The family of this 271-nucleotide sequence from Pseudomonas agarici is "Pseudomonas sRNA P24". Taxonomically the source falls in Pseudomonas (Bacteria, Pseudomonadati, Pseudomonadota, Gammaproteobacteria). Rfam describes the family as follows. This small RNA (sRNA) was computationally identified in the genome of the opportunistic pathogen Pseudomonas aeruginosa and its expression verified by Northern blot analysis. P24 is conserved across several Pseudomonas species and in Azotobacter vinelandii. It appears to be consistently located between a hypothetical protein gene and a transcriptional regulator gene (AsnC family) in the genomes of all these species. It is annotated as a non-coding RNA gene.
RNA sequence: UUGCGCAAGGCAUGUUUAAUUGAGCAAUAUUAGCAAUCCUCUGUCACCACGUCGGGCCUAUGCUUAUCACCAGAAUCACUGCAACAAAAUCACUGCCCGGACAUAGCGUCCACAGCGGCCCGCCGAACCAGGUGCGCCGCGGCCGACAAUCCCACAGGGUUGCCCCGGCCCCCCGGGCUGCACACUGUCCAGAAGACGGCGUGAGGUGAGCCGGCAUCAAAAGCGCCGAGCACGGACGAAAUUCUCCAAAGGGAGGCCGACGGGCCUCCCU
Numbered sequence: 001u002u003g004c005g006c007a008a009g010g011c012a013u014g015u016u017u018a019a020u021u022g023a024g025c026a027a028u029a030u031u032a033g034c035a036a037u038c039c040u041c042u043g044u045c046a047c048c049a050c051g052u053c054g055g056g057c058c059u060a061u062g063c064u065u066a067u068c069a070c071c072a073g074a075a076u077c078a079c080u081g082c083a084a085c086a087a088a089a090u091c092a093c094u095g096c097c098c099g100g101a102c103a104u105a106g107c108g109u110c111c112a113c114a115g116c117g118g119c120c121c122g123c124c125g126a127a128c129c130a131g132g133u134g135c136g137c138c139g140c141g142g143c144c145g146a147c148a149a150u151c152c153c154a155c156a157g158g159g160u161u162g163c164c165c166c167g168g169c170c171c172c173c174c175g176g177g178c179u180g181c182a183c184a185c186u187g188u189c190c191a192g193a194a195g196a197c198g199g200c201g202u203g204a205g206g207u208g209a210g211c212c213g214g215c216a217u218c219a220a221a222a223g224c225g226c227c228g229a230g231c232a233c234g235g236a237c238g239a240a241a242u243u244c245u246c247c248a249a250a251g252g253g254a255g256g257c258c259g260a261c262g263g264g265c266c267u268c269c270c271u
Stems, first nucleotide, its partner, number of pairs: 001012001004009001043057003090209005095178004099111004115140005122133003141170005148161005181203003185199005210231002212228004217223001250271004255266004